RNA: mir-544 microRNA precursor family
Organism: Moschus moschiferus
RNA sequence: AUCACCUAGAGAUCUUAUUAAAAUGCAGAUCCUGACUCAGUAGGUCUGAACUGAGGCCUGAGGGCCUGAGAUUCUGCAUUUCUAAUAAGUUCCCAACUGACGUCAG
Numbered sequence: 001a002u003c004a005c006c007u008a009g010a011g012a013u014c015u016u017a018u019u020a021a022a023a024u025g026c027a028g029a030u031c032c033u034g035a036c037u038c039a040g041u042a043g044g045u046c047u048g049a050a051c052u053g054a055g056g057c058c059u060g061a062g063g064g065c066c067u068g069a070g071a072u073u074c075u076g077c078a079u080u081u082c083u084a085a086u087a088a089g090u091u092c093c094c095a096a097c098u099g100a101c102g103u104c105a106g
Stems, first nucleotide, its partner, number of pairs: 003099002009093001011091001014089007021081003025077005032070002